About this RNA
Eukaryotic small subunit ribosomal RNA: a 221-nucleotide part of an RNA from Microthyrium microscopicum. The match comes from Rfam's covariance-model search (1658 bits).
RNA sequence: CCGCCCGUCGCUACUACCGAUUGAACGGCUCAGCAAGGCCUUCGGACUGGCCCAGAGAGGUUGGCAACGACCACUCCAGGCCGGAAAGUUGGUCAAACUUGGUCGUUUAGAGGAAGUAAAAGUCGUAACAAGGUUUCCGUAGGGUAAGUUUAUAUCACUAUUUUAUAACGAAAAGAAGCAAUUACUAACAUUUUCACAGUGAACCUGCGGAAGGAUCAUUA
Numbered sequence: 001c002c003g004c005c006c007g008u009c010g011c012u013a014c015u016a017c018c019g020a021u022u023g024a025a026c027g028g029c030u031c032a033g034c035a036a037g038g039c040c041u042u043c044g045g046a047c048u049g050g051c052c053c054a055g056a057g058a059g060g061u062u063g064g065c066a067a068c069g070a071c072c073a074c075u076c077c078a079g080g081c082c083g084g085a086a087a088g089u090u091g092g093u094c095a096a097a098c099u100u101g102g103u104c105g106u107u108u109a110g111a112g113g114a115a116g117u118a119a120a121a122g123u124c125g126u127a128a129c130a131a132g133g134u135u136u137c138c139g140u141a142g143g144g145u146a147a148g149u150u151u152a153u154a155u156c157a158c159u160a161u162u163u164u165a166u167a168a169c170g171a172a173a174a175g176a177a178g179c180a181a182u183u184a185c186u187a188a189c190a191u192u193u194u195c196a197c198a199g200u201g202a203a204c205c206u207g208c209g210g211a212a213g214g215a216u217c218a219u220u221a
Base pairs, nucleotide, nucleotide: 001132003129006125007124009122012118013117014116015115017113018112021109023108024107025106026105027104028103029102030101032099033098037094038093039092040091043088047084048083049082050081051080052079055076056075057074059072060071061070062069134213135212136211137210138209139208140207141206142205143204